[Rfam]
RNA sequence: UCCCGGCUUUCCAUCAGCCGGGGAUUCUGAAGAGGCACACCAUCAUUGCCGGAAGUGCGGUAGGGGCCACCCUCCAAUCCAUGGCAGACAAAGCCGGAUCAAUGUUCUUGGCGGAGCGUUGAUUCACAAUUCGCGCGUCGAGCGUAUGCACGGCAU
Numbered sequence: 001u002c003c004c005g006g007c008u009u010u011c012c013a014u015c016a017g018c019c020g021g022g023g024a025u026u027c028u029g030a031a032g033a034g035g036c037a038c039a040c041c042a043u044c045a046u047u048g049c050c051g052g053a054a055g056u057g058c059g060g061u062a063g064g065g066g067c068c069a070c071c072c073u074c075c076a077a078u079c080c081a082u083g084g085c086a087g088a089c090a091a092a093g094c095c096g097g098a099u100c101a102a103u104g105u106u107c108u109u110g111g112c113g114g115a116g117c118g119u120u121g122a123u124u125c126a127c128a129a130u131u132c133g134c135g136c137g138u139c140g141a142g143c144g145u146a147u148g149c150a151c152g153g154c155a156u
Base pairs, nucleotide, nucleotide: 001023002022003021004020005019006018007017008016034050035049036048037047057136058135059134083095084094103118104117105116106115107114
RNA: speF leader
Organism: Rhizobium sp. PDO1-076